[Rfam]
Overview
Small nucleolar RNA SNORA25: a 128-nucleotide RNA sequence from Fukomys damarensis.
RNA sequence: AGGUCAUUUCAAAGAGGGCUUAUGGAAAUGUGAAACCAAGAGCUCUUAACGCGAUGACCAGAGAUGAUGUUCUCCACAGUAUGCCAUAGUCACUCAGUAGUGCUAUGCUUUCCUGAGGAGAUACAACA
Numbered sequence: 001a002g003g004u005c006a007u008u009u010c011a012a013a014g015a016g017g018g019c020u021u022a023u024g025g026a027a028a029u030g031u032g033a034a035a036c037c038a039a040g041a042g043c044u045c046u047u048a049a050c051g052c053g054a055u056g057a058c059c060a061g062a063g064a065u066g067a068u069g070u071u072c073u074c075c076a077c078a079g080u081a082u083g084c085c086a087u088a089g090u091c092a093c094u095c096a097g098u099a100g101u102g103c104u105a106u107g108c109u110u111u112c113c114u115g116a117g118g119a120g121a122u123a124c125a126a127c128a
Base pairs, nucleotide, nucleotide: 002059003058004057005056006055007054014047015046016045017044018043019042020041021040023039071121072120073119074118075117078114079113081111086106087105088104089103091102092101093100094099
It scores 123 bits against the family's covariance model. ACA25 is a member of the H/ACA class of snoRNA that guide the sites of modification of uridines to pseudouridines. The family has 30 seed sequences and 1,129 matches in Rfam 15.1. The family's RNA type in Rfam is H/ACA-box small nucleolar RNA. Gene Ontology terms of the family: nucleolus and RNA processing.